Rfam assigns this 48-nucleotide RNA from Taxus chinensis to the family "Guanidine-II riboswitch aptamer (mini-ykkC)". Simpler in structure and has fewer highly conserved nucleotide positions than the ykkC-yxkD leader. Taxonomically the source falls in Taxus (Eukaryota, Streptophytina, Euphyllophyta, Conifers II).
[Rfam]
RNA sequence: CACCCGGGACGUCCCGGGUGCGUACCCUGUUUGUGGGGGACGUCCCCC
Numbered sequence: 001c002a003c004c005c006g007g008g009a010c011g012u013c014c015c016g017g018g019u020g021c022g023u024a025c026c027c028u029g030u031u032u033g034u035g036g037g038g039g040a041c042g043u044c045c046c047c048c
Stems, first nucleotide, its partner, number of pairs: 001020008035048005